[Rfam]
RNA sequence: UUGCCCACUUGUAGUUUGAUGUACUAUAAGUGGUCAACACAGAGGGGUAAAGCAUUCAUCUCUCUUAAACCCAGAAUUGAGAUCUUACUCUAUUUUGGAUCCUGUCGGGAGAAAUAUUA
Dot-bracket structure: .(((((..((...((((...............)..)))..))..)))))......(...(((((......(((((((.(((.(...)))).)))))))........))))).)......

Rfam assigns this 119-nucleotide sequence from Geotrypetes seraphini to the family "Small nucleolar RNA SNORA26". The snoRNA HBI-6 belong to the H/ACA family of snoRNAs, guiding the pseudouridylation of position U4522 if the 28S rRNA. HBI-6 is the human orthologue of mouse MBI-6 snoRNA. Rfam classes the family as an H/ACA-box small nucleolar RNA. Rfam 15.1 lists 1,943 matches to the family in 640 species.